Source information
tRNA: a 73-nucleotide sequence from Corynebacterium sp. KPL1989. Transfer RNA (tRNA) molecules are approximately 80 nucleotides in length.
Nucleotides: 073
Base pairs, nucleotide, nucleotide: 001072002071003070004069005068006067007066010025011024012023013022027043028042029041030040031039049065050064051063052062053061
Number, partner (000 for none) and nucleotide at each position: 001072g002071c003070g004069c005068g006067a007066u008000u009000a010025g011024c012023u013022c014000a015000g016000u017000u018000g019000g020000u021000a022013g023012a024011g025010c026000a027043c028042u029041a030040c031039c032000u033000c034000g035000a036000c037000a038000c039031g040030g041029u042028a043027g044000g045000g046000g047000u048000c049065a050064c051063u052062g053061g054000u055000u056000c057000a058000a059000g060000u061053c062052c063051a064050g065049u066007a067006u068005c069004g070003c071002g072001c073000a

Pairs were carried over by alignment from the consensus structure, which is taken from published work. A search with the family's covariance model found it, with a score of 67 bits. The organism belongs to Corynebacterium, within Bacteria.